[Rfam]
Shown here is a 94-nucleotide RNA from Sorghum bicolor, a member of the family "MIR5387 microRNA precursor family". The base pairs follow the family's consensus structure, which was predicted with RNAalifold. It scores 84 bits against the family's covariance model. Rfam 15.1 lists 1,029 matches to the family in 9 species. NCBI's taxonomy places the organism under Eukaryota, Liliopsida, Andropogoneae, Sorghinae, Sorghum. Rfam links the family to the GO terms RISC complex and miRNA-mediated post-transcriptional gene silencing.
RNA sequence: UCGUAACACGAACCGGUGCUAAAGGGACCUGCCCAACGGCUACUGAUAAGUAUUGUCGGGGCAAAGACCCUUUAGUACCGGUUCGUGUUACAAA
Numbered sequence: 001u002c003g004u005a006a007c008a009c010g011a012a013c014c015g016g017u018g019c020u021a022a023a024g025g026g027a028c029c030u031g032c033c034c035a036a037c038g039g040c041u042a043c044u045g046a047u048a049a050g051u052a053u054u055g056u057c058g059g060g061g062c063a064a065a066g067a068c069c070c071u072u073u074a075g076u077a078c079c080g081g082u083u084c085g086u087g088u089u090a091c092a093a094a
Stems, first nucleotide, its partner, number of pairs: 003091024030064001032060003036056002044048001